RNA sequence: UACAGCGCUCCGGGGUCGGUGCAAUUCCGAACCGGUGGUGACAGUCCACGAGCUGCGGGCGGACCGAUGUCCGACCGUGGUCGACCCGGUGGAACUCCGGGACCGACGGUGAGAGUCCGGACGGGAGGAAGCGCUGGG
Numbered sequence: 001u002a003c004a005g006c007g008c009u010c011c012g013g014g015g016u017c018g019g020u021g022c023a024a025u026u027c028c029g030a031a032c033c034g035g036u037g038g039u040g041a042c043a044g045u046c047c048a049c050g051a052g053c054u055g056c057g058g059g060c061g062g063a064c065c066g067a068u069g070u071c072c073g074a075c076c077g078u079g080g081u082c083g084a085c086c087c088g089g090u091g092g093a094a095c096u097c098c099g100g101g102a103c104c105g106a107c108g109g110u111g112a113g114a115g116u117c118c119g120g121a122c123g124g125g126a127g128g129a130a131g132c133g134c135u136g137g138g
Stems, first nucleotide, its partner, number of pairs: 003136007010127001017029003031116002033105002035049004044103002052081007085101005107119003

This 138-nucleotide sequence from Curtobacterium sp. MCBD17_040 belongs to the Rfam family "FMN riboswitch aptamer (RFN element)".
It scores 86 bits against the family's covariance model.
Lineage of the source: Bacteria > Actinomycetota > Actinomycetes > Microbacteriaceae > Curtobacterium.